[Rfam]
RNA sequence: GCGAUUUAUAGAGGCAGGGUGUAAGUCCCUACCGGUGGUUAUAGUCCACAACUCUCUAUAGUACAGAGAUUGAUAAGGUGUAAUUCCUUAACCGACGGUAUAGUCCGGAUGAGAUAUGAAUCGG
Numbered sequence: 001g002c003g004a005u006u007u008a009u010a011g012a013g014g015c016a017g018g019g020u021g022u023a024a025g026u027c028c029c030u031a032c033c034g035g036u037g038g039u040u041a042u043a044g045u046c047c048a049c050a051a052c053u054c055u056c057u058a059u060a061g062u063a064c065a066g067a068g069a070u071u072g073a074u075a076a077g078g079u080g081u082a083a084u085u086c087c088u089u090a091a092c093c094g095a096c097g098g099u100a101u102a103g104u105c106c107g108g109a110u111g112a113g114a115u116a117u118g119a120a121u122c123g124g
Stems, first nucleotide, its partner, number of pairs: 003122008017029003031104002033094002035049004044092002053069002074090005096107003
RNA: FMN riboswitch aptamer (RFN element)